[Rfam]
RNA sequence: AGGUUAAUGCUAAUCGUGAUAGGGGUUGUUCUAUAGCAGACACCUACCAUGUUAGCAUUACCUU
Numbered sequence: 001a002g003g004u005u006a007a008u009g010c011u012a013a014u015c016g017u018g019a020u021a022g023g024g025g026u027u028g029u030u031c032u033a034u035a036g037c038a039g040a041c042a043c044c045u046a047c048c049a050u051g052u053u054a055g056c057a058u059u060a061c062c063u064u
Stems, first nucleotide, its partner, number of pairs: 005060010020046004025041003
RNA: mir-155 microRNA precursor family